RNA: mir-486 microRNA precursor family
RNA sequence: GGAUCCUGUACUGAGCUGCCCCGAGGCCUUCACUACUCCCAGCUCGGGGCAGCUCAGUACAGGAUAC
Numbered sequence: 001g002g003a004u005c006c007u008g009u010a011c012u013g014a015g016c017u018g019c020c021c022c023g024a025g026g027c028c029u030u031c032a033c034u035a036c037u038c039c040c041a042g043c044u045c046g047g048g049g050c051a052g053c054u055c056a057g058u059a060c061a062g063g064a065u066a067c
Stems, first nucleotide, its partner, number of pairs: 008060011020048006